[Rfam]
RNA: BsrG
RNA sequence: CAAUAAUUGCAUUUUCUUUAAGGGAGGUCGGCGCAUUCCUGUCGGUUAUAGUGUCUUACGAUACGUUAUAACGGAAGGGGGUGCUGCCCUUGUCUGUUUUUGAGACACUGGUUUUAAUGAUCGCUUUCGCAACACUUGUUGUAACGAUUACAGACCAGAAAAAAUAGACCUCCCUGAGUUUAGCAGCCGGGUGAGGUCUAUUCCUUGUUCGCGCUGACCCCUCUUGAAGGGGAGCGAUUCAUUGCUGACCGGAGAUAUUAGCGUAUCUUCG
Numbered sequence: 001c002a003a004u005a006a007u008u009g010c011a012u013u014u015u016c017u018u019u020a021a022g023g024g025a026g027g028u029c030g031g032c033g034c035a036u037u038c039c040u041g042u043c044g045g046u047u048a049u050a051g052u053g054u055c056u057u058a059c060g061a062u063a064c065g066u067u068a069u070a071a072c073g074g075a076a077g078g079g080g081g082u083g084c085u086g087c088c089c090u091u092g093u094c095u096g097u098u099u100u101u102g103a104g105a106c107a108c109u110g111g112u113u114u115u116a117a118u119g120a121u122c123g124c125u126u127u128c129g130c131a132a133c134a135c136u137u138g139u140u141g142u143a144a145c146g147a148u149u150a151c152a153g154a155c156c157a158g159a160a161a162a163a164a165u166a167g168a169c170c171u172c173c174c175u176g177a178g179u180u181u182a183g184c185a186g187c188c189g190g191g192u193g194a195g196g197u198c199u200a201u202u203c204c205u206u207g208u209u210c211g212c213g214c215u216g217a218c219c220c221c222u223c224u225u226g227a228a229g230g231g232g233a234g235c236g237a238u239u240c241a242u243u244g245c246u247g248a249c250c251g252g253a254g255a256u257a258u259u260a261g262c263g264u265a266u267c268u269u270c271g
Stems, first nucleotide, its partner, number of pairs: 001244004005239003009235001015217002018178002021175004026169001028167001033084003037081004092155006106119002130146001189205003218232004250271009
Dot-bracket structure: (((((((.(.....((.((.((((.(.(....(((.((((.....................................))))))).......((((((........((..........))..........(...............)...))))))...........).)..)))).))..........(((...........)))..........))((((.......))))..).))).)))).....(((((((((....)))))))))